[Rfam]
RNA sequence: CAUCCUGUUACCGCACACGGAUGCGACGUAACAAAGCCGGGUUCAUCGGUAACGGGGACCCG
Numbered sequence: 001c002a003u004c005c006u007g008u009u010a011c012c013g014c015a016c017a018c019g020g021a022u023g024c025g026a027c028g029u030a031a032c033a034a035a036g037c038c039g040g041g042u043u044c045a046u047c048g049g050u051a052a053c054g055g056g057g058a059c060c061c062g
Base pairs, nucleotide, nucleotide: 006033007032008031009030010029011028013027038062039061040060041059042058043057044056046055047054048053
A member of the RNA family "Pseudomonas sRNA P36" from Pseudomonas kuykendallii, 62 nucleotides long. Pairs were carried over by alignment from the consensus structure, which was predicted with RNAalifold.